Shown here is a 52-nucleotide sequence from Psychromonas sp. B3M02, a member of the family "Guanidine-II riboswitch aptamer (mini-ykkC)". Rfam describes the family as follows. Simpler in structure and has fewer highly conserved nucleotide positions than the ykkC-yxkD leader. Despite this each of its two stem-loop structures directly bind free guanidine. Therefore, mini-ykkC RNA motif represents a distinct class of guanidine-sensing RNAs. Its crystal structure was also determined.

RNA sequence: AAACAAGGACGACCUUGUUGGUUAUUCUCAGUAUUAAUUCGGGACGACCCGA
Numbered sequence: 001a002a003a004c005a006a007g008g009a010c011g012a013c014c015u016u017g018u019u020g021g022u023u024a025u026u027c028u029c030a031g032u033a034u035u036a037a038u039u040c041g042g043g044a045c046g047a048c049c050c051g052a
Stems, first nucleotide, its partner, number of pairs: 002019007039052005